[Rfam]
RNA sequence: GAUAGGAGGAGCCGCUAUGAACGCAGUUCAUAAUCGGAAUCGGCUCCGACGACCUGCCCCGCUGUGGAGCAGAGGGGCGAUACAGAUU
Number, nucleotide and partner (000 for none) at each position: 001g000002a000003u000004a000005g000006g000007a000008g047009g046010a045011g044012c043013c042014g000015c000016u032017a031018u030019g029020a028021a027022c000023g000024c000025a000026g000027u021028u020029c019030a018031u017032a016033a000034u000035c000036g000037g000038a000039a000040u000041c000042g013043g012044c011045u010046c009047c008048g000049a000050c000051g000052a000053c000054c000055u000056g078057c077058c076059c075060c074061g000062c000063u071064g070065u000066g000067g000068a000069g000070c064071a063072g000073a000074g060075g059076g058077g057078c056079g000080a000081u000082a000083c000084a000085g000086a000087u000088u000

This 88-nucleotide RNA sequence belongs to the Rfam family "GA-cis RNA". By type it is a small RNA. Rfam's curators put it in the seed alignment.